This 136-nucleotide sequence from Octodon degus belongs to the Rfam family "Small nucleolar RNA SNORA67".
Nucleotides: 136
Stems, first nucleotide, its partner, number of pairs: 002064006009057001019049003022043003026039001028037001073129003079124001084119002092113004
Number, partner (000 for none) and nucleotide at each position: 001000a002064u003063c004062c005061a006060a007059g008000g009057u010000u011000a012000u013000u014000g015000u016000c017000u018000c019049u020048c021047a022043a023042a024041g025000g026039g027000a028037c029000c030000a031000a032000c033000u034000a035000g036000u037028g038000c039026c040000a041024c042023u043022u044000u045000c046000a047021u048020g049019a050000a051000a052000g053000u054000g055000g056000c057009a058000a059007c060006u061005u062004g063003g064002a065000a066000g067000a068000c069000a070000a071000u072000u073129a074128a075127g076000c077000a078000u079124g080000u081000c082000u083000u084119u085118a086000g087000u088000c089000a090000c091000u092113u093112g094111a095110a096000c097000c098000a099000g100000a101000g102000g103000a104000u105000g106000c107000u108000u109000a110095u111094u112093c113092a114000u115000u116000u117000u118085u119084g120000u121000u122000g123000u124079u125000u126000c127075u128074u129073u130000g131000u132000a133000a134000u135000g136000u

Rfam classes the family as an H/ACA-box small nucleolar RNA. About the family: U67 belongs to the H/ACA class of snoRNAs which are thought to guide the sites of modification of uridines to pseudouridines. The family has 12 seed sequences and 580 matches in Rfam 15.1. The match comes from Rfam's covariance-model search (73 bits).